Overview:
A member of the RNA family "FMN riboswitch aptamer (RFN element)" from Fictibacillus aquaticus, 153 nucleotides long. The organism belongs to Fictibacillus, within Bacteria. The family's consensus secondary structure is taken from published work.
RNA sequence: AAGUACCUUCGGGGUCGGGUGAAAUUCCCAACCGGCGGUGAUGAAACAUUUGUUUCUCAGCCCGUGACCCGAACGCAUAGCUAUGUGCUAGCGGGCGGUGGAUUCGGUGAAAUUCCGGAGCCGACAGUAUAGUCUGGAUGGGAGAAGGUAAGG
Numbered sequence: 001a002a003g004u005a006c007c008u009u010c011g012g013g014g015u016c017g018g019g020u021g022a023a024a025u026u027c028c029c030a031a032c033c034g035g036c037g038g039u040g041a042u043g044a045a046a047c048a049u050u051u052g053u054u055u056c057u058c059a060g061c062c063c064g065u066g067a068c069c070c071g072a073a074c075g076c077a078u079a080g081c082u083a084u085g086u087g088c089u090a091g092c093g094g095g096c097g098g099u100g101g102a103u104u105c106g107g108u109g110a111a112a113u114u115c116c117g118g119a120g121c122c123g124a125c126a127g128u129a130u131a132g133u134c135u136g137g138a139u140g141g142g143a144g145a146a147g148g149u150a151a152g153g
Stems, first nucleotide, its partner, number of pairs: 004150007017029003031133002033123002035065004060121002069098002103119005125136003
The match comes from Rfam's covariance-model search (114 bits).